[Rfam]
Overview
Small nucleolar RNA R21: a 77-nucleotide sequence from Castanea mollissima. Rfam 15.1 lists 472 matches to the family in 146 species. It is annotated as a C/D-box small nucleolar RNA. Lineage of the source: Eukaryota > Embryophyta > Tracheophyta > Gunneridae > Castanea. It scores 59 bits against the family's covariance model.
RNA sequence: CAUCCCUGUGAGGAUUUUGUUCAAUUAAAAAGUAGUGGACUGAUCUCAAUUGAUGAACAACUCAACUCUGAGGGAUG
Numbered sequence: 001c002a003u004c005c006c007u008g009u010g011a012g013g014a015u016u017u018u019g020u021u022c023a024a025u026u027a028a029a030a031a032g033u034a035g036u037g038g039a040c041u042g043a044u045c046u047c048a049a050u051u052g053a054u055g056a057a058c059a060a061c062u063c064a065a066c067u068c069u070g071a072g073g074g075a076u077g
Stems, first nucleotide, its partner, number of pairs: 001077006